[Rfam]
A member of the RNA family "Flavo-1 RNA" from Hufsiella arboris, 98 nucleotides long. It is annotated as a small RNA.
RNA sequence: CAAUAAACGCGAUGGAAGUGGAAAGCUUUUUUGUGGCAGAGACGUUCUUAACGCAGCUACGUUUGUCAAAAAACUUGCAACGUACAGCGGGACUAUCG
Numbered sequence: 001c002a003a004u005a006a007a008c009g010c011g012a013u014g015g016a017a018g019u020g021g022a023a024a025g026c027u028u029u030u031u032u033g034u035g036g037c038a039g040a041g042a043c044g045u046u047c048u049u050a051a052c053g054c055a056g057c058u059a060c061g062u063u064u065g066u067c068a069a070a071a072a073a074c075u076u077g078c079a080a081c082g083u084a085c086a087g088c089g090g091g092a093c094u095a096u097c098g
Base pairs, nucleotide, nucleotide: 010089011088013086014085018081019080023076024075025074029071030070031069032068033067036066037065038064039063040062